[Rfam]
RNA: ASpks TB sRNA
Organism: Streptomyces lavendulae
RNA sequence: CUUGAUCGAGCCCAGCAGCAGAGGACGGUCCGCCGCUCGGUCCUGGCCGUACGUGGCCAGCAGCGCCUGGGCCUC
Numbered sequence: 001c002u003u004g005a006u007c008g009a010g011c012c013c014a015g016c017a018g019c020a021g022a023g024g025a026c027g028g029u030c031c032g033c034c035g036c037u038c039g040g041u042c043c044u045g046g047c048c049g050u051a052c053g054u055g056g057c058c059a060g061c062a063g064c065g066c067c068u069g070g071g072c073c074u075c
Base pairs, nucleotide, nucleotide: 016024031071033069038065039064043060044059045058047056048055049054